tRNA: a 72-nucleotide sequence from Sporosarcina limicola. Transfer RNA (tRNA) molecules are approximately 80 nucleotides in length. Their secondary structure includes four short double-helical elements and three loops (D, anti-codon, and T loops). Further hydrogen bonds mediate the characteristic L-shaped molecular structure. tRNAs have two regions of fundamental functional importance: the anti-codon, which is responsible for specific mRNA codon recognition, and the 3' end, to which the tRNAs corresponding amino acid is attached (by aminoacyl-tRNA synthetases). tRNAs cope with the degeneracy of the genetic code in two manners: having more than one tRNA (with a specific anti-codon) for a particular amino acid; and 'wobble' base-pairing, i.e. permitting non-standard base-pairing at the 3rd anti-codon position. The base pairs follow the family's consensus structure, which is taken from published work.

RNA sequence: GCCCUCGUGGUGCAACGGAUAGCACGUGAGCCUCCGAAGCUUAAAAUGUGAGUUCGAUUCUCGCCGAGGGCA
Dot-bracket structure: (((((((..((((........)))).(((((.......)))))....(((((.......)))))))))))).
A search with the family's covariance model found it, with a score of 64 bits. Gene Ontology term of the family: triplet codon-amino acid adaptor activity.